[Rfam]
RNA sequence: ACCAUGAAUCACUCCCCUGUGAGGAACUACUGUCUUCACGCAGAAAGCGUCUAGCCAUGGCGUUAGUAUGAGUGUCGUGCAGCCUCCAGGACCCCCCCUCCCGGGAGAGCCAUAGUGGUCUGCGGAACCGGUGAGUACACCGGAAUUGCCAGGACGACCGGGUCCUUUCUUGGAUCAAACCCGCUCUAUGCCUGGAGAUUUGGGCGUGCCCCCGCGAGACUGCUAGCCGAGUAGUGUUGGGUCGCGAAAGGCCUUGUGGUACUGCCUGAUAGGGUGCUUGCGAGUGCCCCGGGAGGUCUCGUAGACCGUGCACCAUGAGCACGAAUC
Numbered sequence: 001a002c003c004a005u006g007a008a009u010c011a012c013u014c015c016c017c018u019g020u021g022a023g024g025a026a027c028u029a030c031u032g033u034c035u036u037c038a039c040g041c042a043g044a045a046a047g048c049g050u051c052u053a054g055c056c057a058u059g060g061c062g063u064u065a066g067u068a069u070g071a072g073u074g075u076c077g078u079g080c081a082g083c084c085u086c087c088a089g090g091a092c093c094c095c096c097c098c099u100c101c102c103g104g105g106a107g108a109g110c111c112a113u114a115g116u117g118g119u120c121u122g123c124g125g126a127a128c129c130g131g132u133g134a135g136u137a138c139a140c141c142g143g144a145a146u147u148g149c150c151a152g153g154a155c156g157a158c159c160g161g162g163u164c165c166u167u168u169c170u171u172g173g174a175u176c177a178a179a180c181c182c183g184c185u186c187u188a189u190g191c192c193u194g195g196a197g198a199u200u201u202g203g204g205c206g207u208g209c210c211c212c213c214g215c216g217a218g219a220c221u222g223c224u225a226g227c228c229g230a231g232u233a234g235u236g237u238u239g240g241g242u243c244g245c246g247a248a249a250g251g252c253c254u255u256g257u258g259g260u261a262c263u264g265c266c267u268g269a270u271a272g273g274g275u276g277c278u279u280g281c282g283a284g285u286g287c288c289c290c291g292g293g294a295g296g297u298c299u300c301g302u303a304g305a306c307c308g309u310g311c312a313c314c315a316u317g318a319g320c321a322c323g324a325a326u327c
Stems, first nucleotide, its partner, number of pairs: 016090004021086004030082004037074003041070002046064006097296009107228001109227002113225009122215004128143006144200003149195005156186002159183004163174003202211003230263004235258002239254005264275004276287002308322004
RNA: Hepatitis C virus internal ribosome entry site